Source information: Alphaproteobacterial ar14: a 122-nucleotide RNA from Rhizobium sp. LC145. Rfam's curators write: Smr14C2 was renamed NfeR1 (Nodule Formation Efficiency RNA) highly expressed in salt stress and during the symbiotic interaction on legume roots. The base pairs follow the family's consensus structure. Rfam classes the family as a small RNA. The source organism's lineage runs through Bacteria, Pseudomonadati, Hyphomicrobiales, Rhizobiaceae and Rhizobium.
RNA sequence: AAGCAUCGAAGGGCGCACUCCUCCUCCCAGCGCCUCUCGACGGGACUGACAACACCUCCUCCUCCCGGUUGUCAGUCAGUUUCAGAAACCCGGCGCACCUCCUCCCGCGCCGGGUUUUCUGU
Numbered sequence: 001a002a003g004c005a006u007c008g009a010a011g012g013g014c015g016c017a018c019u020c021c022u023c024c025u026c027c028c029a030g031c032g033c034c035u036c037u038c039g040a041c042g043g044g045a046c047u048g049a050c051a052a053c054a055c056c057u058c059c060u061c062c063u064c065c066c067g068g069u070u071g072u073c074a075g076u077c078a079g080u081u082u083c084a085g086a087a088a089c090c091c092g093g094c095g096c097a098c099c100u101c102c103u104c105c106c107g108c109g110c111c112g113g114g115u116u117u118u119c120u121g122u
Base pairs, nucleotide, nucleotide: 007039008038009037011035012034013033014032015031016030044077045076046075047074048073049072050071051070052069053068086117087116088115089114090113091112092111093110094109095108096107